[Rfam]
RNA sequence: AAUCGGAGAGAGAAUUGGGCUUGGCUUUGAUUAUUUUAGUCAGUCUUUUUCUCUCUCCUAUA
Numbered sequence: 001a002a003u004c005g006g007a008g009a010g011a012g013a014a015u016u017g018g019g020c021u022u023g024g025c026u027u028u029g030a031u032u033a034u035u036u037u038a039g040u041c042a043g044u045c046u047u048u049u050u051c052u053c054u055c056u057c058c059u060a061u062a
Stems, first nucleotide, its partner, number of pairs: 002061002005058004010053004017046005024040003